[Rfam]
RNA: Cyano-1 RNA
RNA sequence: UUGUGUGUAGGAGAAAUUGAUUUAUUUCAGUGGAAACAAGGAAACACUUGUUGUAAAUCAAUUUAAAA
Numbered sequence: 001u002u003g004u005g006u007g008u009a010g011g012a013g014a015a016a017u018u019g020a021u022u023u024a025u026u027u028c029a030g031u032g033g034a035a036a037c038a039a040g041g042a043a044a045c046a047c048u049u050g051u052u053g054u055a056a057a058u059c060a061a062u063u064u065a066a067a068a
Base pairs, nucleotide, nucleotide: 014064015063016062017061018060019059022056023055028050029049030047031046032045